[Rfam]
RNA sequence: CGCUCAUCCAGAGGGGCAGAGGGAACGGCCCGACGAAGCCCCGGCAACCGGCGUGCAGCCUGUCAUCCCGCGAUCGCGGGGUAGCUGACGACCACGGUGCCAAUUCCGGCCCGCUUCGGCGGGGCAGAUGAGGA
Numbered sequence: 001c002g003c004u005c006a007u008c009c010a011g012a013g014g015g016g017c018a019g020a021g022g023g024a025a026c027g028g029c030c031c032g033a034c035g036a037a038g039c040c041c042c043g044g045c046a047a048c049c050g051g052c053g054u055g056c057a058g059c060c061u062g063u064c065a066u067c068c069c070g071c072g073a074u075c076g077c078g079g080g081g082u083a084g085c086u087g088a089c090g091a092c093c094a095c096g097g098u099g100c101c102a103a104u105u106c107c108g109g110c111c112c113g114c115u116u117c118g119g120c121g122g123g124g125c126a127g128a129u130g131a132g133g134a
Stems, first nucleotide, its partner, number of pairs: 003132006013042005021031003026108003043101004048097002050093002105126001110123005
Shown here is a 134-nucleotide RNA sequence from Streptomyces sp. AA4, a member of the family "SAM riboswitch aptamer (S box leader)". The organism belongs to Streptomyces, within Bacteria.